[Rfam]
RNA sequence: CAACAAAGGAAGCAUGGUAAUGUGCAUAGAAAUUGAAUUGGGUCUCUAGGAUUUGCUCUCUCUGAUGCCAUUUAGCUUUGAUUUAGGGGCAUGAUUCCGCAGAAAAAUA
Numbered sequence: 001c002a003a004c005a006a007a008g009g010a011a012g013c014a015u016g017g018u019a020a021u022g023u024g025c026a027u028a029g030a031a032a033u034u035g036a037a038u039u040g041g042g043u044c045u046c047u048a049g050g051a052u053u054u055g056c057u058c059u060c061u062c063u064g065a066u067g068c069c070a071u072u073u074a075g076c077u078u079u080g081a082u083u084u085a086g087g088g089g090c091a092u093g094a095u096u097c098c099g100c101a102g103a104a105a106a107a108u109a
Stems, first nucleotide, its partner, number of pairs: 012025004040092001042090003050082001052081002055076003
Dot-bracket structure: ...........((((......))))..............(.(((.....(.((.(((................)))...))).....))).).................
RNA: Small nucleolar RNA snoR100
Organism: Rhododendron simsii